[Rfam]
RNA sequence: UUACUGGACGCUUUAGCUAUUGAACUGUUCUGUCACUCUCUGACAGAGAAUAAUUUGUUCUUUGACAGAGAGUGACAAAACAGUUAACAACAAAACAGUAAU
Numbered sequence: 001u002u003a004c005u006g007g008a009c010g011c012u013u014u015a016g017c018u019a020u021u022g023a024a025c026u027g028u029u030c031u032g033u034c035a036c037u038c039u040c041u042g043a044c045a046g047a048g049a050a051u052a053a054u055u056u057g058u059u060c061u062u063u064g065a066c067a068g069a070g071a072g073u074g075a076c077a078a079a080a081c082a083g084u085u086a087a088c089a090a091c092a093a094a095a096c097a098g099u100a101a102u
Base pairs, nucleotide, nucleotide: 001101002100003099004098005097006096012095013094014093016091018089020087021086023085024084025083026082027081028080029069030068031067032066033065034064035063049059050058051057052056